The family of this 99-nucleotide RNA from Galemys pyrenaicus is "mir-658 microRNA precursor family". The base pairs follow the family's consensus structure, which was predicted with RNAalifold. NCBI's taxonomy places the organism under Eukaryota, Teleostomi, Dipnotetrapodomorpha, Tetrapoda, Galemys. The family has 4 seed sequences and 45 matches in Rfam 15.1. Gene Ontology terms of the family: miRNA-mediated post-transcriptional gene silencing and RISC complex.

RNA sequence: GCUCGUUGCCUUGGUAGCAGGCUCGGCCCGCCCGCUCGCCCGCUGACAGCGAGGCUUGGGGCGGAGGGAAGCGGGUCCGUUGGUCUGUCGGGAACGAGG
Numbered sequence: 001g002c003u004c005g006u007u008g009c010c011u012u013g014g015u016a017g018c019a020g021g022c023u024c025g026g027c028c029c030g031c032c033c034g035c036u037c038g039c040c041c042g043c044u045g046a047c048a049g050c051g052a053g054g055c056u057u058g059g060g061g062c063g064g065a066g067g068g069a070a071g072c073g074g075g076u077c078c079g080u081u082g083g084u085c086u087g088u089c090g091g092g093a094a095c096g097a098g099g
Stems, first nucleotide, its partner, number of pairs: 002098006009091002013085003017080002020077004024071001027068003032064005038055001039053001041051004